[Rfam]
The family of this 266-nucleotide sequence from Ammoniphilus oxalaticus is "Bacterial large signal recognition particle RNA". The family's RNA type in Rfam is non-coding RNA gene. From the family's description: The signal recognition particle (SRP) is a universally conserved ribonucleoprotein involved in the co-translational targeting of proteins to membranes. A search with the family's covariance model found it, with a score of 209 bits. The organism belongs to Ammoniphilus, within Bacteria.
RNA sequence: UCGCGCUAGAUGGGGAGUUGGCGGUGCCCUAUAACCCGCAAUCCGCCUUAGCGGGGUUGAAUUCCUAUUAGAGGUGCGAUUCAUGUAAGGUCUGCCUUGUAUAAGUGGUGUUGACAAUUGGGUCCUGCGCAACAGAUAGCCGUGAACCUGGUCAGGUCCGGAAGGAAGCAGCCAUAAGUGGUGUCAUCUGUGUGCCGUAGGGCAACCUGAUUUGAGCUAACUACACAAGUAACGCUUGGUUGGUCGUAUCGAUAAUAGGUGCGCGG
Numbered sequence: 001u002c003g004c005g006c007u008a009g010a011u012g013g014g015g016a017g018u019u020g021g022c023g024g025u026g027c028c029c030u031a032u033a034a035c036c037c038g039c040a041a042u043c044c045g046c047c048u049u050a051g052c053g054g055g056g057u058u059g060a061a062u063u064c065c066u067a068u069u070a071g072a073g074g075u076g077c078g079a080u081u082c083a084u085g086u087a088a089g090g091u092c093u094g095c096c097u098u099g100u101a102u103a104a105g106u107g108g109u110g111u112u113g114a115c116a117a118u119u120g121g122g123u124c125c126u127g128c129g130c131a132a133c134a135g136a137u138a139g140c141c142g143u144g145a146a147c148c149u150g151g152u153c154a155g156g157u158c159c160g161g162a163a164g165g166a167a168g169c170a171g172c173c174a175u176a177a178g179u180g181g182u183g184u185c186a187u188c189u190g191u192g193u194g195c196c197g198u199a200g201g202g203c204a205a206c207c208u209g210a211u212u213u214g215a216g217c218u219a220a221c222u223a224c225a226c227a228a229g230u231a232a233c234g235c236u237u238g239g240u241u242g243g244u245c246g247u248a249u250c251g252a253u254a255a256u257a258g259g260u261g262c263g264c265g266g
Base pairs, nucleotide, nucleotide: 001266002265003264004263005262006261009058010057011056012030013029014028015027017025018024019023035055036054037053038052039051064259065258066257067256068255069254070253073250074249075248076247077246081243082242083241086238087237088236089235093231094230097228098227099226100225102223105221106220107218108217109216116212117211118210119209120208121207122206123205124201125200126199127198128197129196130192131191133190134189135188136187137186139182140181141180142179143178149174150173151172152171157166158165159164